Notes:
Rfam assigns this 68-nucleotide sequence from Austrofundulus limnaeus to the family "Small nucleolar RNA SNORD58". The family has 33 seed sequences and 2,484 matches in Rfam 15.1. Rfam classes the family as a C/D-box small nucleolar RNA.
[Rfam]
RNA sequence: UGGCUGUGAUGAUUUCUUAGGACACCUUUGGAUUAACCAUGAAAAGAACUUGAUAAAAUCUGAGCUAU
Numbered sequence: 001u002g003g004c005u006g007u008g009a010u011g012a013u014u015u016c017u018u019a020g021g022a023c024a025c026c027u028u029u030g031g032a033u034u035a036a037c038c039a040u041g042a043a044a045a046g047a048a049c050u051u052g053a054u055a056a057a058a059u060c061u062g063a064g065c066u067a068u
Stems, first nucleotide, its partner, number of pairs: 001067004
The family is grouped with related families in Rfam's "SNORD58 clan". From the family's description: snoRNA U58 is found in introns 1, 3 and 6 of the ribosomal protein RPL17 gene in humans. Lineage of the source: Eukaryota > Bilateria > Teleostomi > Actinopterygii > Austrofundulus.